Shown here is a 67-nucleotide RNA sequence, a member of the family "S15-Flavobacteria ribosomal protein leader". The sequence is in the family's curated seed alignment. The family's RNA type in Rfam is cis-regulatory leader.

RNA sequence: UACUUUUGCACUCUCGCAACGAAAAUCGUAGCGAAUACAUAAAAAUUAUUUUAAUAAUAUUGGCAUG
Numbered sequence: 001u002a003c004u005u006u007u008g009c010a011c012u013c014u015c016g017c018a019a020c021g022a023a024a025a026u027c028g029u030a031g032c033g034a035a036u037a038c039a040u041a042a043a044a045a046u047u048a049u050u051u052u053a054a055u056a057a058u059a060u061u062g063g064c065a066u067g
Stems, first nucleotide, its partner, number of pairs: 014034004019029003